[Rfam]
RNA sequence: CCCCCGCUUCACCUCCCUGAGCGGGGUCCCGGGCACCUCCUGUCCCGGGGCUUUCCCGCCCGGCCGCGCCGGGCUUCUUUUU
Numbered sequence: 001c002c003c004c005c006g007c008u009u010c011a012c013c014u015c016c017c018u019g020a021g022c023g024g025g026g027u028c029c030c031g032g033g034c035a036c037c038u039c040c041u042g043u044c045c046c047g048g049g050g051c052u053u054u055c056c057c058g059c060c061c062g063g064c065c066g067c068g069c070c071g072g073g074c075u076u077c078u079u080u081u082u
Stems, first nucleotide, its partner, number of pairs: 003025006027050007058074007
This 82-nucleotide sequence from Oryzisolibacter propanilivorax belongs to the Rfam family "Burkholderia RNA 7 (anti-hemB)". The literature on the family includes a 2012 paper in BMC Genomics by Khoo et al., "Computational discovery and RT-PCR validation of novel Burkholderia conserved and Burkholderia pseudomallei unique sRNAs". NCBI's taxonomy places the organism under Bacteria, Betaproteobacteria, Burkholderiales, Comamonadaceae, Oryzisolibacter. About the family: This RNA motif was identified by computational search in b-proteobacteria Burkholderia. Co-purified with Hfq, expression confirmed by Northern blot. Rfam links the family to the GO terms bacterial biofilm matrix and protein binding.